[Rfam]
RNA sequence: UUUUUAUUCGGUGAUGGGGUUCACCGCUAACCGCCGACGUGCUGAUAACUCCUACCAGCGU
Numbered sequence: 001u002u003u004u005u006a007u008u009c010g011g012u013g014a015u016g017g018g019g020u021u022c023a024c025c026g027c028u029a030a031c032c033g034c035c036g037a038c039g040u041g042c043u044g045a046u047a048a049c050u051c052c053u054a055c056c057a058g059c060g061u
Base pairs, nucleotide, nucleotide: 010025011024012023013022016052017051018050019049020048021047033042034041
Fluoride riboswitch aptamer (crcB RNA motif): a 61-nucleotide RNA sequence from Candidatus Moduliflexus flocculans. Pairs were carried over by alignment from the consensus structure, which is taken from published work. A search with the family's covariance model found it, with a score of 50 bits. The source organism's lineage runs through Bacteria, Candidatus Moduliflexota, Candidatus Moduliflexales, Candidatus Moduliflexaceae and Candidatus Moduliflexus.